[Rfam]
RNA sequence: GAUUUGCGUUAAGGAUGAAAACGGCAUCCUUUUUCUUGUUUUUUUUAAACAAGAAAAAGAUAUAGUGGACAGCCUGACCUGAA
Numbered sequence: 001g002a003u004u005u006g007c008g009u010u011a012a013g014g015a016u017g018a019a020a021a022c023g024g025c026a027u028c029c030u031u032u033u034u035c036u037u038g039u040u041u042u043u044u045u046u047a048a049a050c051a052a053g054a055a056a057a058a059g060a061u062a063u064a065g066u067g068g069a070c071a072g073c074c075u076g077a078c079c080u081g082a083a
Stems, first nucleotide, its partner, number of pairs: 012075003016071002021066002026061003032056010
This 83-nucleotide RNA from Mesonia algae belongs to the Rfam family "Flavo-1 RNA". The match comes from Rfam's covariance-model search (60 bits). The family's RNA type in Rfam is small RNA.